[Rfam]
RNA sequence: GAAAAAGGAACUUCUAUUAAGGGCGCCCACGUCCUGUGGGCAACACAGAAGUCAGCACACGCGC
Numbered sequence: 001g002a003a004a005a006a007g008g009a010a011c012u013u014c015u016a017u018u019a020a021g022g023g024c025g026c027c028c029a030c031g032u033c034c035u036g037u038g039g040g041c042a043a044c045a046c047a048g049a050a051g052u053c054a055g056c057a058c059a060c061g062c063g064c
Base pairs, nucleotide, nucleotide: 011051012050013049014048015047017045026040027039028038029037030036055064056063
RNA: Bacillaceae-1 RNA